The family of this 72-nucleotide RNA from Anisakis simplex is "mir-50 microRNA precursor family". A search with the family's covariance model found it, with a score of 64 bits. A reference for the family is Lau et al. (2001), "An abundant class of tiny RNAs with probable regulatory roles in Caenorhabditis elegans", Science. Rfam links the family to the GO terms RISC complex and miRNA-mediated post-transcriptional gene silencing. The family is grouped with related families in Rfam's "mir-50 clan".
[Rfam]
RNA sequence: GCAGCGUUGAUAUGUCUGGUAUUCUUGGGUUGGGUUUUUGUCAACCAGUAUCUCAGACGUAUCAUCGUUAUG
Numbered sequence: 001g002c003a004g005c006g007u008u009g010a011u012a013u014g015u016c017u018g019g020u021a022u023u024c025u026u027g028g029g030u031u032g033g034g035u036u037u038u039u040g041u042c043a044a045c046c047a048g049u050a051u052c053u054c055a056g057a058c059g060u061a062u063c064a065u066c067g068u069u070a071u072g
Stems, first nucleotide, its partner, number of pairs: 008064012021051002028046003
Dot-bracket structure: .......((((((((((((.((.....(((.............)))...)).))))))))))))........